A member of the RNA family "PyrD leader" from Klebsiella aerogenes, 74 nucleotides long. Taxonomically the source falls in Klebsiella aerogenes (Bacteria, Pseudomonadati, Pseudomonadota, Enterobacteriaceae). Its family is annotated with regulation of gene expression in the Gene Ontology.
[Rfam]
RNA sequence: AUUCCCUUUCGGGCGCGGAUCGAACAUAAUACGCCCCCGGUUUGCACACCGGGAAUCCAGGAGAGUUCAUGUAC
Number, nucleotide and partner (000 for none) at each position: 001a000002u000003u000004c000005c000006c000007u000008u000009u000010c000011g000012g000013g000014c000015g000016c000017g000018g000019a000020u000021c000022g000023a000024a000025c000026a000027u000028a000029a000030u000031a000032c000033g000034c000035c000036c053037c052038c051039g050040g049041u048042u000043u000044g000045c000046a000047c000048a041049c040050c039051g038052g037053g036054a000055a000056u000057c000058c000059a000060g000061g000062a000063g000064a000065g000066u000067u000068c000069a000070u000071g000072u000073a000074c000